Overview:
Shown here is a 596-nucleotide part of an RNA from Tigriopus californicus, a member of the family "Eukaryotic large subunit ribosomal RNA". The family is grouped with related families in Rfam's "LSU clan".
[Rfam]
RNA sequence: AAAGAAGACCCGUUGAGUUUGACUCUAGUCUCCUAUUGUGGCGGAGCAUCUCUGGUGUAGCAUAGGAGGAGGCUUUGCCGACCGUGAAAUACUCCUACGGAGAUCGCUCCUCUGCUUACUCGGUUAGGCGGGGUACGCGUACUUCGGUGCACGUGUUCUUGAAUCAAUCGUCGGGGCUUUGUCUCCUUCACGGACCCGCUCCGAGGACAUUGCGAGGCGGGGAGUUUGACUGGGGCGGUACAUCUGUCAAAUGAUAACGCAGGUGUCCUAAGGCCAGCUCAGUGAGGACGGAAACCUCGCGUAGAGCAAAAGGGCAAAUGCUGGCUUGACCCUUCCCUUCAGUACGGGGCGAGGAGCAGAAAUGUCGGCCUAUCGAUCCUCUUUAUUUCGGAGUUUGAAGAAAGAGGUGUCAGAAAAAUUACCACAGGGAUAACUGGCUUGUGGCGGCCAAGCGUUCAUAGCGACGUCGCUUUUUGAUCCUUCGAUGUCGGCUCUUCCUAUCAUUGCGAAGCAGAAUUCGCCAAGCGUCGGAUUGUUCACCCGCCAAUAGGGAACGUGAGCUGGGUUUAGACCGUCGUGAGACAGGUUAGUUUUAC
Numbered sequence: 001a002a003a004g005a006a007g008a009c010c011c012g013u014u015g016a017g018u019u020u021g022a023c024u025c026u027a028g029u030c031u032c033c034u035a036u037u038g039u040g041g042c043g044g045a046g047c048a049u050c051u052c053u054g055g056u057g058u059a060g061c062a063u064a065g066g067a068g069g070a071g072g073c074u075u076u077g078c079c080g081a082c083c084g085u086g087a088a089a090u091a092c093u094c095c096u097a098c099g100g101a102g103a104u105c106g107c108u109c110c111u112c113u114g115c116u117u118a119c120u121c122g123g124u125u126a127g128g129c130g131g132g133g134u135a136c137g138c139g140u141a142c143u144u145c146g147g148u149g150c151a152c153g154u155g156u157u158c159u160u161g162a163a164u165c166a167a168u169c170g171u172c173g174g175g176g177c178u179u180u181g182u183c184u185c186c187u188u189c190a191c192g193g194a195c196c197c198g199c200u201c202c203g204a205g206g207a208c209a210u211u212g213c214g215a216g217g218c219g220g221g222g223a224g225u226u227u228g229a230c231u232g233g234g235g236c237g238g239u240a241c242a243u244c245u246g247u248c249a250a251a252u253g254a255u256a257a258c259g260c261a262g263g264u265g266u267c268c269u270a271a272g273g274c275c276a277g278c279u280c281a282g283u284g285a286g287g288a289c290g291g292a293a294a295c296c297u298c299g300c301g302u303a304g305a306g307c308a309a310a311a312g313g314g315c316a317a318a319u320g321c322u323g324g325c326u327u328g329a330c331c332c333u334u335c336c337c338u339u340c341a342g343u344a345c346g347g348g349g350c351g352a353g354g355a356g357c358a359g360a361a362a363u364g365u366c367g368g369c370c371u372a373u374c375g376a377u378c379c380u381c382u383u384u385a386u387u388u389c390g391g392a393g394u395u396u397g398a399a400g401a402a403a404g405a406g407g408u409g410u411c412a413g414a415a416a417a418a419u420u421a422c423c424a425c426a427g428g429g430a431u432a433a434c435u436g437g438c439u440u441g442u443g444g445c446g447g448c449c450a451a452g453c454g455u456u457c458a459u460a461g462c463g464a465c466g467u468c469g470c471u472u473u474u475u476g477a478u479c480c481u482u483c484g485a486u487g488u489c490g491g492c493u494c495u496u497c498c499u500a501u502c503a504u505u506g507c508g509a510a511g512c513a514g515a516a517u518u519c520g521c522c523a524a525g526c527g528u529c530g531g532a533u534u535g536u537u538c539a540c541c542c543g544c545c546a547a548u549a550g551g552g553a554a555c556g557u558g559a560g561c562u563g564g565g566u567u568u569a570g571a572c573c574g575u576c577g578u579g580a581g582a583c584a585g586g587u588u589a590g591u592u593u594u595a596c
Stems, first nucleotide, its partner, number of pairs: 002594002010428002012425001014424002016420005022225004029217004034212002038115004043110005048104007064096005071079002119205005129198004137152001139150003169192003173188004228241001229239003242264006267368002273325006279305002282300006306315002330354002333351001335349004356365003379406006386400004437478001439476001441475001443471006452462002489564001490562004494556001495553005502527001506521005529543003533539001570588004574583003